[Rfam]
RNA sequence: UGAGAUGGAAUUAGCAUUUGGAUAUGCGAUUUCACGUUGAUUCCAUGUCAUG
Numbered sequence: 001u002g003a004g005a006u007g008g009a010a011u012u013a014g015c016a017u018u019u020g021g022a023u024a025u026g027c028g029a030u031u032u033c034a035c036g037u038u039g040a041u042u043c044c045a046u047g048u049c050a051u052g
Base pairs, nucleotide, nucleotide: 001050002049003048005046006045007044008043009042010041011040012039013038014037015036017034018029019028020027

Overview: Rfam assigns this 52-nucleotide RNA from Solanum commersonii to the family "MIR1886 microRNA precursor family". Its family is annotated with miRNA-mediated post-transcriptional gene silencing and RISC complex in the Gene Ontology. Pairs were carried over by alignment from the consensus structure, which was predicted with RNAalifold. Rfam 15.1 lists 1,053 matches to the family in 6 species.